[Rfam]
RNA sequence: ACAAGAAAAACAACAAGCAGUACGACACCCAUAACAAGAACAAUACGAAUCGACUCACGCAUAACAAGAACAACACGGCGGAGGCGCAGCUAACUGAUUCUUUUGGAGAGGAGUUGUAUUUGGGGCUUGCCCCGCAACCAGGCCGAGAACAAUAAAAACUACCCUUAGGUAGCGCCUGAACUGGUUGGAUCGAAUGAUCAUUGCAACGCAGCGACCAAAGCAAUCCGUUUGCUCUUGACUCCCGACUGGGAGGGUUCACAGACAAAAGUCUCGUGAAUGGGCACUCAACAAAAACAAGAAGCCCGUACAGAAAAUAAAAAUAAAGAGCACACACUUUGGGGGAGCUUCGGCUCCCCCAGUAGCUUCCAGACCCUAUCUGCGCCGUAGUG
Numbered sequence: 001a002c003a004a005g006a007a008a009a010a011c012a013a014c015a016a017g018c019a020g021u022a023c024g025a026c027a028c029c030c031a032u033a034a035c036a037a038g039a040a041c042a043a044u045a046c047g048a049a050u051c052g053a054c055u056c057a058c059g060c061a062u063a064a065c066a067a068g069a070a071c072a073a074c075a076c077g078g079c080g081g082a083g084g085c086g087c088a089g090c091u092a093a094c095u096g097a098u099u100c101u102u103u104u105g106g107a108g109a110g111g112a113g114u115u116g117u118a119u120u121u122g123g124g125g126c127u128u129g130c131c132c133c134g135c136a137a138c139c140a141g142g143c144c145g146a147g148a149a150c151a152a153u154a155a156a157a158a159c160u161a162c163c164c165u166u167a168g169g170u171a172g173c174g175c176c177u178g179a180a181c182u183g184g185u186u187g188g189a190u191c192g193a194a195u196g197a198u199c200a201u202u203g204c205a206a207c208g209c210a211g212c213g214a215c216c217a218a219a220g221c222a223a224u225c226c227g228u229u230u231g232c233u234c235u236u237g238a239c240u241c242c243c244g245a246c247u248g249g250g251a252g253g254g255u256u257c258a259c260a261g262a263c264a265a266a267a268g269u270c271u272c273g274u275g276a277a278u279g280g281g282c283a284c285u286c287a288a289c290a291a292a293a294a295c296a297a298g299a300a301g302c303c304c305g306u307a308c309a310g311a312a313a314a315u316a317a318a319a320a321u322a323a324a325g326a327g328c329a330c331a332c333a334c335u336u337u338g339g340g341g342g343a344g345c346u347u348c349g350g351c352u353c354c355c356c357c358a359g360u361a362g363c364u365u366c367c368a369g370a371c372c373c374u375a376u377c378u379g380c381g382c383c384g385u386a387g388u389g
Stems, first nucleotide, its partner, number of pairs: 051086002054083003101220005115213003135187007159172005239253002242250001275371001278370001279304004323365003338357008
RNA: Pseudomonas sRNA CrcZ
Organism: Pseudomonas syringae group genomosp. 3